[Rfam]
This 135-nucleotide RNA from Arthrobacter oryzae belongs to the Rfam family "ALIL pseudoknot".

RNA sequence: CUCGAUUUUCUUCGCGAGGGAGCUCGACCCUCGCCGCCGCAAAUAGCUGGAUUCAUCGACGAACUGCGUGCCGAUGGCCACGGGGUCGAGCCGGCCUGCAAGGUCCUGCGUGAGCAGGGCGUGCAGGUCGCCCCG
Numbered sequence: 001c002u003c004g005a006u007u008u009u010c011u012u013c014g015c016g017a018g019g020g021a022g023c024u025c026g027a028c029c030c031u032c033g034c035c036g037c038c039g040c041a042a043a044u045a046g047c048u049g050g051a052u053u054c055a056u057c058g059a060c061g062a063a064c065u066g067c068g069u070g071c072c073g074a075u076g077g078c079c080a081c082g083g084g085g086u087c088g089a090g091c092c093g094g095c096c097u098g099c100a101a102g103g104u105c106c107u108g109c110g111u112g113a114g115c116a117g118g119g120c121g122u123g124c125a126g127g128u129c130g131c132c133c134c135g
Base pairs, nucleotide, nucleotide: 016032017031018030019029020028081135082134083133084132085131092130093129095127096126097125098124099123100122